[Rfam]
RNA sequence: GAUAACCAAAAAUUACCAAGGGAUUUAAGGUCGGAUUCACAACCGUUCUCACGUUGUGAAUGGUUGCGUCAUAAAUUCCACCCCAAAACAUUGCUUUACCAACCAAUAGUAAAGCCGCAACCCCUAAAAACAACAAAUGGUGUCCGAGGAUAAAUCCCAGUUUUUUCGGGUCAUCCCA
Numbered sequence: 001g002a003u004a005a006c007c008a009a010a011a012a013u014u015a016c017c018a019a020g021g022g023a024u025u026u027a028a029g030g031u032c033g034g035a036u037u038c039a040c041a042a043c044c045g046u047u048c049u050c051a052c053g054u055u056g057u058g059a060a061u062g063g064u065u066g067c068g069u070c071a072u073a074a075a076u077u078c079c080a081c082c083c084c085a086a087a088a089c090a091u092u093g094c095u096u097u098a099c100c101a102a103c104c105a106a107u108a109g110u111a112a113a114g115c116c117g118c119a120a121c122c123c124c125u126a127a128a129a130a131c132a133a134c135a136a137a138u139g140g141u142g143u144c145c146g147a148g149g150a151u152a153a154a155u156c157c158c159a160g161u162u163u164u165u166u167c168g169g170g171u172c173a174u175c176c177c178a
Base pairs, nucleotide, nucleotide: 137174138173139172140171141170144169145168146167147166148165
Rfam assigns this 178-nucleotide RNA from Calothrix sp. NIES-3974 to the family "Antisense RNA which regulates isiA expression".